RNA sequence: GCAGUCACAAGUGGGGUCAUAGCAGGAGCAUUCAUGUUGCGACCCCUGUCAGGUAAUACGUGUUAAUACCUGCAAAUUCUGCU
Number, nucleotide and partner (000 for none) at each position: 001g000002c000003a000004g000005u000006c000007a000008c000009a000010a000011g000012u000013g046014g045015g044016g043017u042018c041019a000020u000021a083022g082023c081024a080025g079026g078027a077028g040029c039030a038031u000032u000033c000034a000035u000036g000037u000038u030039g029040c028041g018042a017043c016044c015045c014046c013047u000048g000049u000050c072051a071052g070053g069054u068055a067056a000057u000058a000059c000060g000061u000062g000063u000064u000065a000066a000067u055068a054069c053070c052071u051072g050073c000074a000075a000076a000077u027078u026079c025080u024081g023082c022083u021